[Rfam]
RNA sequence: UCUUCAGUGAUGAUUUAAUACAGUGACUUUCGUUCUUCUGAGAUUACUGAAGCCAACAUUUCUGUCCUGAGAAGA
Numbered sequence: 001u002c003u004u005c006a007g008u009g010a011u012g013a014u015u016u017a018a019u020a021c022a023g024u025g026a027c028u029u030u031c032g033u034u035c036u037u038c039u040g041a042g043a044u045u046a047c048u049g050a051a052g053c054c055a056a057c058a059u060u061u062c063u064g065u066c067c068u069g070a071g072a073a074g075a
Stems, first nucleotide, its partner, number of pairs: 001075003005071001
RNA: Small nucleolar RNA SNORD59
Organism: Oryzias latipes